RNA: Eukaryotic large subunit ribosomal RNA, nucleotides 764 to 1047
Organism: Hesseltinella vesiculosa
RNA sequence: GAGUCCACGUAUGGAGCGAGUCGUUGGGUGGCAAACCCAUAGGCGAAGUGAAAGCAAUUGGGAAGAAGCUGUCAAAGGUGGCAUUCCCGGGGGGACAUGACGUUUUAACUGAAAGACCUCACCCAAAGCUCCAUGCAUGGGACCCGAAAGAUGGUGAACUAUACUUGAAUAGGGUGAAGCCAGAGGAAACUCUGGUGGAGGCUCGUAGCGAUUCUGACGUGCAAAUCGAUCGUCAAAUUUGAGUAUAGGGGCGAAAGACUAAUCGAACCAUCUGGUAGCUGGUU
Numbered sequence: 001g002a003g004u005c006c007a008c009g010u011a012u013g014g015a016g017c018g019a020g021u022c023g024u025u026g027g028g029u030g031g032c033a034a035a036c037c038c039a040u041a042g043g044c045g046a047a048g049u050g051a052a053a054g055c056a057a058u059u060g061g062g063a064a065g066a067a068g069c070u071g072u073c074a075a076a077g078g079u080g081g082c083a084u085u086c087c088c089g090g091g092g093g094g095a096c097a098u099g100a101c102g103u104u105u106u107a108a109c110u111g112a113a114a115g116a117c118c119u120c121a122c123c124c125a126a127a128g129c130u131c132c133a134u135g136c137a138u139g140g141g142a143c144c145c146g147a148a149a150g151a152u153g154g155u156g157a158a159c160u161a162u163a164c165u166u167g168a169a170u171a172g173g174g175u176g177a178a179g180c181c182a183g184a185g186g187a188a189a190c191u192c193u194g195g196u197g198g199a200g201g202c203u204c205g206u207a208g209c210g211a212u213u214c215u216g217a218c219g220u221g222c223a224a225a226u227c228g229a230u231c232g233u234c235a236a237a238u239u240u241g242a243g244u245a246u247a248g249g250g251g252c253g254a255a256a257g258a259c260u261a262a263u264c265g266a267a268c269c270a271u272c273u274g275g276u277a278g279c280u281g282g283u284u
Base pairs, nucleotide, nucleotide: 005140006139007138009136010135011134012133013132014131015130016129017128020044021043022042025039026038027037028036029035048055049054060088061087062086063085064084068079069078090123091122092120093119094118096115102109143282144281146279150272151271152270153269154268155267159248160247161246162245163244164243165242166241167240168239169238170236172204173203174202175201179196180195181194182193183192184191185190208233209232210231211230213229214228216227217226250260251259